About this RNA
A member of the RNA family "Group II catalytic intron D1-D4-3" from Virgibacillus salinus, 175 nucleotides long.
RNA sequence: UCUGGGGUGACCGAGAAUCUGAAGGAAGUCGGCGGCAAAUCUCCGCCUUGAGGAACACGGACUUCAUAGAAGGCUAGGUGUAUUUGGGUGAGACUGCCAUACAAGUUAAAAGCCCUUACUGCCGAAGGAUACACAAAGUAAAUACGUUUUGUAAUACUUAGAUUAAUUAAUAUUU
Numbered sequence: 001u002c003u004g005g006g007g008u009g010a011c012c013g014a015g016a017a018u019c020u021g022a023a024g025g026a027a028g029u030c031g032g033c034g035g036c037a038a039a040u041c042u043c044c045g046c047c048u049u050g051a052g053g054a055a056c057a058c059g060g061a062c063u064u065c066a067u068a069g070a071a072g073g074c075u076a077g078g079u080g081u082a083u084u085u086g087g088g089u090g091a092g093a094c095u096g097c098c099a100u101a102c103a104a105g106u107u108a109a110a111a112g113c114c115c116u117u118a119c120u121g122c123c124g125a126a127g128g129a130u131a132c133a134c135a136a137a138g139u140a141a142a143u144a145c146g147u148u149u150u151g152u153a154a155u156a157c158u159u160a161g162a163u164u165a166a167u168u169a170a171u172a173u174u175u
Stems, first nucleotide, its partner, number of pairs: 001016003005012002028175001032171001035168001040162003045157001047151001050148001063146001066143002073139003078134006086115004092107004
Group II introns are found in rRNA, tRNA and mRNA of organelles in fungi, plants and protists, and also in mRNA in bacteria. The pairing is the family consensus, mapped onto this sequence.